[Rfam]
RNA sequence: UCUCGUUCUCAGGGCGAGGUGCAAGUCCUCACCGGCGGUAAACGGACCUGGUCCGAAGCCCGCGAGCGCCUUCCAUGGAAGGGACCAGCAGAUCAGGUGCAACUCCUGAGCCGACGGUUAUAGUCCGGAUGAAAGAGACUACG
Numbered sequence: 001u002c003u004c005g006u007u008c009u010c011a012g013g014g015c016g017a018g019g020u021g022c023a024a025g026u027c028c029u030c031a032c033c034g035g036c037g038g039u040a041a042a043c044g045g046a047c048c049u050g051g052u053c054c055g056a057a058g059c060c061c062g063c064g065a066g067c068g069c070c071u072u073c074c075a076u077g078g079a080a081g082g083g084a085c086c087a088g089c090a091g092a093u094c095a096g097g098u099g100c101a102a103c104u105c106c107u108g109a110g111c112c113g114a115c116g117g118u119u120a121u122a123g124u125c126c127g128g129a130u131g132a133a134a135g136a137g138a139c140u141a142c143g
Stems, first nucleotide, its partner, number of pairs: 003141001005139002008137003017029003031124002033113002035063004058111002066089002093109005115127003
Shown here is a 143-nucleotide RNA sequence from Celeribacter indicus, a member of the family "FMN riboswitch aptamer (RFN element)". Pairs were carried over by alignment from the consensus structure, which is taken from published work. Rfam describes the family as follows. The RFN element is a highly conserved domain that is found frequently in the 5'-untranslated regions of prokaryotic mRNAs that encode for flavin mononucleotide (FMN) biosynthesis and transport proteins. This element is a metabolite-dependent riboswitch that directly binds FMN in the absence of proteins.